[Rfam]
RNA sequence: CAGCGGGUGCGAAUCCUGCCCGACAACUUUCGCUCCGGCCGGUAGUAACUGGAGCAAUCGUGGAGGUAACAAAGCGGUUGAAGCCUUCAGUGUAGAGGGUCCUUCAGGGACUUGGCGAGCACGCAGGCCGCAACGUGA
Dot-bracket structure: ...................(((.(.............).))).......(((((((((((....(....)....))))))....))))).......((((((.....)))))).(((...........))).......
Numbered sequence: 001c002a003g004c005g006g007g008u009g010c011g012a013a014u015c016c017u018g019c020c021c022g023a024c025a026a027c028u029u030u031c032g033c034u035c036c037g038g039c040c041g042g043u044a045g046u047a048a049c050u051g052g053a054g055c056a057a058u059c060g061u062g063g064a065g066g067u068a069a070c071a072a073a074g075c076g077g078u079u080g081a082a083g084c085c086u087u088c089a090g091u092g093u094a095g096a097g098g099g100u101c102c103u104u105c106a107g108g109g110a111c112u113u114g115g116c117g118a119g120c121a122c123g124c125a126g127g128c129c130g131c132a133a134c135g136u137g138a
Stems, first nucleotide, its partner, number of pairs: 020042003024038001050089005055080006065070001097113006115131003
This 138-nucleotide RNA sequence from Thauera sp. 27 belongs to the Rfam family "Group II catalytic intron D1-D4-4". The base pairs follow the family's consensus structure. NCBI's taxonomy places the organism under Bacteria, Pseudomonadati, Rhodocyclales, Zoogloeaceae, Thauera. For this family Rfam cites "Control of branch-site choice by a group II intron" (Chu et al., EMBO J, 2001). Rfam's curators write: Group II introns are found in rRNA, tRNA and mRNA of organelles in fungi, plants and protists, and also in mRNA in bacteria. Rfam 15.1 lists 840 matches to the family in 506 species.